[Rfam]
RNA: SAM riboswitch aptamer (S box leader)
RNA sequence: CUCUUAUCGAGAGAGGUGGAGGGACUGGCCCGAUGAAACCCGGCAACCUUCUCGCAUUAGAGGUCAGCGAGAAAGGUGCCAAUUCCUGCAGGAAGGUUAUCUUCCUGAGAGAUAAGAG
Dot-bracket structure: ((((((((....(.(((...(((.[.[[)))......))))((((.((.((((((...........))))))..))))))...(]].]((((((.......))))))..)))))))))